The family of this 84-nucleotide sequence from Solanum commersonii is "MIR8024 microRNA precursor family". The family has 2 seed sequences and 661 matches in Rfam 15.1. The match comes from Rfam's covariance-model search (62 bits).
RNA sequence: UUGAUUGAUUUGAGACUUUCUCUUGUAGACUUGAAGAAUUUGAAGACUUCAACUUACAAACUUAAGAAUUUGAAGACCUCAACU
Number, nucleotide and partner (000 for none) at each position: 001u082002u081003g080004a079005u000006u000007g000008a000009u074010u073011u072012g071013a070014g069015a000016c066017u065018u064019u000020c000021u000022c000023u000024u058025g057026u056027a055028g000029a000030c000031u052032u051033g050034a049035a048036g047037a000038a000039u000040u000041u000042g000043a000044a000045g000046a000047c036048u035049u034050c033051a032052a031053c000054u000055u027056a026057c025058a024059a000060a000061c000062u000063u000064a018065a017066g016067a000068a000069u014070u013071u012072g011073a010074a009075g000076a000077c000078c000079u004080c003081a002082a001083c000084u000
The source organism's lineage runs through Eukaryota, Streptophytina, Magnoliopsida, Solanaceae and Solanum.